The family of this 84-nucleotide RNA sequence from Eggerthella sp. YY7918 is "c-di-GMP-I riboswitch aptamer". A search with the family's covariance model found it, with a score of 53 bits. Taxonomically the source falls in Eggerthella (Bacteria, Bacillati, Eggerthellales, Eggerthellaceae).
[Rfam]
RNA sequence: AUGUCUUCAAGGCAAACCUGCCGGAAGGCAGCGGCGCAAAGCUAAAGGGGCCCAUUCUAAGAAGAAGGCCAGCCAGUUGCACGU
Numbered sequence: 001a002u003g004u005c006u007u008c009a010a011g012g013c014a015a016a017c018c019u020g021c022c023g024g025a026a027g028g029c030a031g032c033g034g035c036g037c038a039a040a041g042c043u044a045a046a047g048g049g050g051c052c053c054a055u056u057c058u059a060a061g062a063a064g065a066a067g068g069c070c071a072g073c074c075a076g077u078u079g080c081a082c083g084u
Stems, first nucleotide, its partner, number of pairs: 012037002018031005040078004047074002049070003056065003